[Rfam]
Shown here is a 242-nucleotide RNA sequence from Sebaldella termitidis, a member of the family "glmS glucosamine-6-phosphate activated ribozyme aptamer". This entry contains a glucosamine-6-phosphate activated ribozyme that is found in the mRNA for GlmS. GlmS is an enzyme that uses fructose-6-phosphate and glutamine to generate glucosamine-6-phosphate. The ribozyme catalyses self cleavage of the glmS mRNA that is thought to regulate GlmS activity. It scores 66 bits against the family's covariance model. Gene Ontology terms of the family: regulation of gene expression and catalytic activity. It is annotated as a riboswitch. Lineage of the source: Bacteria > Fusobacteriales > Leptotrichiaceae > Sebaldella > Sebaldella termitidis.
RNA sequence: AACAUCAUACAAGCGCCAGACCUUUAAUUUUUAGAGCUUUACAAUAUAAAUAAAUAACACCUGAUUUUUGAAAAAAGUUGUUUCAUUAAUCACAUAAAAUUUAUAUUAGUUCUGAAAAUAAAGGUGACGAGGAGUUAAGAGUUAUCGAAUAUUUCGGCGGGUACUCUUAGGGUGGUCACAACCCCAGCAGUAAACAAAUCCUGUAAGCAAUUACAGAUACAAAAUUACUGCAGUGACAAUCU
Numbered sequence: 001a002a003c004a005u006c007a008u009a010c011a012a013g014c015g016c017c018a019g020a021c022c023u024u025u026a027a028u029u030u031u032u033a034g035a036g037c038u039u040u041a042c043a044a045u046a047u048a049a050a051u052a053a054a055u056a057a058c059a060c061c062u063g064a065u066u067u068u069u070g071a072a073a074a075a076a077g078u079u080g081u082u083u084c085a086u087u088a089a090u091c092a093c094a095u096a097a098a099a100u101u102u103a104u105a106u107u108a109g110u111u112c113u114g115a116a117a118a119u120a121a122a123g124g125u126g127a128c129g130a131g132g133a134g135u136u137a138a139g140a141g142u143u144a145u146c147g148a149a150u151a152u153u154u155c156g157g158c159g160g161g162u163a164c165u166c167u168u169a170g171g172g173u174g175g176u177c178a179c180a181a182c183c184c185c186a187g188c189a190g191u192a193a194a195c196a197a198a199u200c201c202u203g204u205a206a207g208c209a210a211u212u213a214c215a216g217a218u219a220c221a222a223a224a225u226u227a228c229u230g231c232a233g234u235g236a237c238a239a240u241c242u
Stems, first nucleotide, its partner, number of pairs: 020125007029116003136169005145157004170184004175179001187231006201216006